The family of this 162-nucleotide sequence from Carnegiea gigantea is "U1 spliceosomal RNA".
The family's consensus secondary structure is taken from published work.
U1 is a small nuclear RNA (snRNA) component of the spliceosome (involved in pre-mRNA splicing).
Taxonomically the source falls in Carnegiea (Eukaryota, Euphyllophyta, Spermatophyta, Pentapetalae).
The family is grouped with related families in Rfam's "U1 clan".
RNA sequence: AUACUUACCUGGACGGGGUCAAUGUGUGAUCAAGAGGGCUCAUGGCCUGGGUAGGUGGCCUCCAUUGCACUUGGGAGGUGUGCCUUCCUAACGUCUCCCCAAAGCGGGAGAGCGUACGUCAUAAUUUGUGGCAGUGGGGGCCUGCGUCCGCGCGGCCCCUGA
Numbered sequence: 001a002u003a004c005u006u007a008c009c010u011g012g013a014c015g016g017g018g019u020c021a022a023u024g025u026g027u028g029a030u031c032a033a034g035a036g037g038g039c040u041c042a043u044g045g046c047c048u049g050g051g052u053a054g055g056u057g058g059c060c061u062c063c064a065u066u067g068c069a070c071u072u073g074g075g076a077g078g079u080g081u082g083c084c085u086u087c088c089u090a091a092c093g094u095c096u097c098c099c100c101a102a103a104g105c106g107g108g109a110g111a112g113c114g115u116a117c118g119u120c121a122u123a124a125u126u127u128g129u130g131g132c133a134g135u136g137g138g139g140g141c142c143u144g145c146g147u148c149c150g151c152g153c154g155g156c157c158c159c160u161g162a
Base pairs, nucleotide, nucleotide: 012120013119014118015117016048017047018046019045020044021043023042024041026039027038049089050088051087053086055083056082057081060078061077062075063074091115092114093113094111095110096109098107099106135161136160137159138158139157143154144153145152146151